[Rfam]
Shown here is a 275-nucleotide sequence from Callithrix jacchus, a member of the family "Mason-Pfizer monkey virus packaging signal". Gene Ontology term of the family: viral genome packaging. NCBI's taxonomy places the organism under Eukaryota, Opisthokonta, Euteleostomi, Callithrix, Callithrix. This family represents a group of sequences that are related to the Mason-Pfizer monkey virus (MPMV) packaging signal. The packaging signal is located in the 5' UTR and is required for specific RNA encapsidation.
RNA sequence: UGGCGCCCAACGUGGGGCUCGAGUACGAGGGGUACAGUGAGGGACGCCGUCGAGGUCGGCCGGCACAGAAGGAUUAAGAAACCCGGAGGAAAGAGCGUCGUGGUAACCUGCCAGGGACUCGCGCUCCGGUAAGCGGAUGGUGAAUAUGGGACAGGAAAUCAGCCAGCAGGAGUUGUUUAUAGAGAGUUUAAGUAAGGCUUUAAAGGCGCGAGGAGUAAAGGUGAAAAUAAAACAAUUGUGUAAAUAUUUUAACUAUAUCCAGGAUGUCUGCCCUU
Numbered sequence: 001u002g003g004c005g006c007c008c009a010a011c012g013u014g015g016g017g018c019u020c021g022a023g024u025a026c027g028a029g030g031g032g033u034a035c036a037g038u039g040a041g042g043g044a045c046g047c048c049g050u051c052g053a054g055g056u057c058g059g060c061c062g063g064c065a066c067a068g069a070a071g072g073a074u075u076a077a078g079a080a081a082c083c084c085g086g087a088g089g090a091a092a093g094a095g096c097g098u099c100g101u102g103g104u105a106a107c108c109u110g111c112c113a114g115g116g117a118c119u120c121g122c123g124c125u126c127c128g129g130u131a132a133g134c135g136g137a138u139g140g141u142g143a144a145u146a147u148g149g150g151a152c153a154g155g156a157a158a159u160c161a162g163c164c165a166g167c168a169g170g171a172g173u174u175g176u177u178u179a180u181a182g183a184g185a186g187u188u189u190a191a192g193u194a195a196g197g198c199u200u201u202a203a204a205g206g207c208g209c210g211a212g213g214a215g216u217a218a219a220g221g222u223g224a225a226a227a228u229a230a231a232a233c234a235a236u237u238g239u240g241u242a243a244a245u246a247u248u249u250u251a252a253c254u255a256u257a258u259c260c261a262g263g264a265u266g267u268c269u270g271c272c273c274u275u
Stems, first nucleotide, its partner, number of pairs: 006031003012026003037045002083129003087125002093120003099115001101113003134154001136152001141148002159202001161200001162198003210250004215245002219237002222234002261274003265270001